The family of this 119-nucleotide RNA from Lactococcus garvieae is "aspC ncRNA motif". The literature on the family includes a 2024 paper in Nucleic Acids Res by Narunsky et al., "The discovery of novel noncoding RNAs in 50 bacterial genomes".

[Rfam]
RNA sequence: UUUAAACCCCGGGGUUACCGGGUAACCCGGGGUACCCCGGGUUUAAAACCCGGUAACCGGGUAACGGGGGUUAAACCGGUUUAACCGGUUUACCGUUAAAACCGUUAACGUUUAAACCG
Numbered sequence: 001u002u003u004a005a006a007c008c009c010c011g012g013g014g015u016u017a018c019c020g021g022g023u024a025a026c027c028c029g030g031g032g033u034a035c036c037c038c039g040g041g042u043u044u045a046a047a048a049c050c051c052g053g054u055a056a057c058c059g060g061g062u063a064a065c066g067g068g069g070g071u072u073a074a075a076c077c078g079g080u081u082u083a084a085c086c087g088g089u090u091u092a093c094c095g096u097u098a099a100a101a102c103c104g105u106u107a108a109c110g111u112u113u114a115a116a117c118c119g
Stems, first nucleotide, its partner, number of pairs: 009079003018053005026041005057068002060065001095103001
Lineage of the source: Bacteria > Bacillati > Bacilli > Lactococcus > Lactococcus garvieae. Pairs were carried over by alignment from the consensus structure, which is taken from published work. By type it is a cis-regulatory element.